[Rfam]
Nucleotides: 135
Base pairs, nucleotide, nucleotide: 011120012119013118014117018030019029020028031115032114033113034112035111036110041050051100052099053098059075060074061073062072078094079093080092081091
Number, partner (000 for none) and nucleotide at each position: 001000u002000g003000a004000c005000g006000g007000c008000c009000a010000c011120c012119g013118c014117c015000u016000a017000a018030u019029c020028g021000u022000c023000g024000u025000u026000c027000a028020c029019g030018a031115g032114c033113c034112g035111g036110g037000g038000a039000c040000c041050c042000a043000g044000g045000a046000a047000c048000c049000a050041g051100g052099g053098g054000u055000c056000a057000a058000g059075c060074c061073a062072c063000a064000g065000c066000a067000u068000c069000a070000c071000c072062g073061u074060g075059g076000c077000c078094g079093g080092g081091c082000g083000c084000g085000c086000u087000u088000c089000c090000c091081g092080c093079c094078c095000g096000a097000a098053c099052c100051c101000g102000u103000c104000a105000g106000c107000u108000a109000a110036c111035c112034c113033g114032g115031u116000c117014g118013g119012c120011g121000g122000c123000c124000g125000a126000g127000g128000g129000a130000a131000g132000a133000a134000a135000g
c-di-AMP riboswitch aptamer (ydaO/yuaA leader): a 135-nucleotide sequence from Actinoplanes friuliensis.